RNA: serC leader
RNA sequence: CAGUGGGCCACGCCGUCCCAACGCGGUGCGCCUCUCUGAAAGGGGAGUAUUU
Numbered sequence: 001c002a003g004u005g006g007g008c009c010a011c012g013c014c015g016u017c018c019c020a021a022c023g024c025g026g027u028g029c030g031c032c033u034c035u036c037u038g039a040a041a042g043g044g045g046a047g048u049a050u051u052u
Stems, first nucleotide, its partner, number of pairs: 011028006032047006